[Rfam]
RNA sequence: CGCACGGACCCGCCGAAUCGUGUUCACGAACCGGGGACCCAGGUACGUCGGGGUGAAUCCGCAGGGCCACGGCCCGCGGUAGGGCGCUCUUCCCGCCCGAAUCCGUCAGCUAACCCGGUAGGCGGUCGCGGAAGGAGCU
Numbered sequence: 001c002g003c004a005c006g007g008a009c010c011c012g013c014c015g016a017a018u019c020g021u022g023u024u025c026a027c028g029a030a031c032c033g034g035g036g037a038c039c040c041a042g043g044u045a046c047g048u049c050g051g052g053g054u055g056a057a058u059c060c061g062c063a064g065g066g067c068c069a070c071g072g073c074c075c076g077c078g079g080u081a082g083g084g085c086g087c088u089c090u091u092c093c094c095g096c097c098c099g100a101a102u103c104c105g106u107c108a109g110c111u112a113a114c115c116c117g118g119u120a121g122g123c124g125g126u127c128g129c130g131g132a133a134g135g136a137g138c139u
Stems, first nucleotide, its partner, number of pairs: 011124004018029003030119006040050001051104003059079004082098004